[Rfam]
RNA sequence: GGAGUCGGCCAGACAACCGCUGUCCGCAAGGAUGGAGGAAAGUCCGGGCUCCCAGGGCAAGGCGCCAGGUAACGCCUGGGGGACGUGAGUCCACGGAAAGUGCAACAGAAAGCAAACCGCCGAACUCCCGCAAGGGGGUGGUAAGGGUGAAAUGGUGCGGUAAGAGCGCACCGCGCCGGUGGCAACACUCGGUGGCACGGCAAACCCCGCCUGGAGCAAGACCAAAUAGGGAAGCACGCUGGCCAAGCAAUUGGCCGGCACGUAUGGCCCAUACAGGCUUCCGGGUAGGUCGCUCGAGGUGCGCGGCGACGCGCACCCCAGAUGAAUGGUUGUCCUCGACAAAACCCGGCUUAUCGGCCGACUCCUUUU
Numbered sequence: 001g002g003a004g005u006c007g008g009c010c011a012g013a014c015a016a017c018c019g020c021u022g023u024c025c026g027c028a029a030g031g032a033u034g035g036a037g038g039a040a041a042g043u044c045c046g047g048g049c050u051c052c053c054a055g056g057g058c059a060a061g062g063c064g065c066c067a068g069g070u071a072a073c074g075c076c077u078g079g080g081g082g083a084c085g086u087g088a089g090u091c092c093a094c095g096g097a098a099a100g101u102g103c104a105a106c107a108g109a110a111a112g113c114a115a116a117c118c119g120c121c122g123a124a125c126u127c128c129c130g131c132a133a134g135g136g137g138g139u140g141g142u143a144a145g146g147g148u149g150a151a152a153u154g155g156u157g158c159g160g161u162a163a164g165a166g167c168g169c170a171c172c173g174c175g176c177c178g179g180u181g182g183c184a185a186c187a188c189u190c191g192g193u194g195g196c197a198c199g200g201c202a203a204a205c206c207c208c209g210c211c212u213g214g215a216g217c218a219a220g221a222c223c224a225a226a227u228a229g230g231g232a233a234g235c236a237c238g239c240u241g242g243c244c245a246a247g248c249a250a251u252u253g254g255c256c257g258g259c260a261c262g263u264a265u266g267g268c269c270c271a272u273a274c275a276g277g278c279u280u281c282c283g284g285g286u287a288g289g290u291c292g293c294u295c296g297a298g299g300u301g302c303g304c305g306g307c308g309a310c311g312c313g314c315a316c317c318c319c320a321g322a323u324g325a326a327u328g329g330u331u332g333u334c335c336u337c338g339a340c341a342a343a344a345c346c347c348g349g350c351u352u353a354u355c356g357g358c359c360g361a362c363u364c365c366u367u368u369u
Stems, first nucleotide, its partner, number of pairs: 001365010011354001012334007020035006040352003044349005049216004055270004060212005065079005080094001081092004095207002100205002102201002117146002119142003124139006154172006173196001174194005179188003220291004230282006262274004298317008